The record is a 110-nucleotide RNA from Cytophaga hutchinsonii, which matches "SAM riboswitch aptamer (S box leader)" in Rfam. The organism belongs to Cytophaga hutchinsonii, within Bacteria. Gene Ontology term of the family: regulation of gene expression.

RNA sequence: GAUUUAUAAAGAAGAGGGGAGAGAACGGGCUCUUUGAACCUCUAGCAACCUCCGGGAGCAAAUCCAGAAAGGUGCUAAUUCCUGACCUGAAUAAACAGGGCAUAUAAAUU
Numbered sequence: 001g002a003u004u005u006a007u008a009a010a011g012a013a014g015a016g017g018g019g020a021g022a023g024a025a026c027g028g029g030c031u032c033u034u035u036g037a038a039c040c041u042c043u044a045g046c047a048a049c050c051u052c053c054g055g056g057a058g059c060a061a062a063u064c065c066a067g068a069a070a071g072g073u074g075c076u077a078a079u080u081c082c083u084g085a086c087c088u089g090a091a092u093a094a095a096c097a098g099g100g101c102a103u104a105u106a107a108a109u110u
Stems, first nucleotide, its partner, number of pairs: 001110008013043005021032003026084004044076004049072002051068002054065001080102001086099004
Rfam's curators put it in the seed alignment. The base pairs follow the family's consensus structure, which is taken from published work.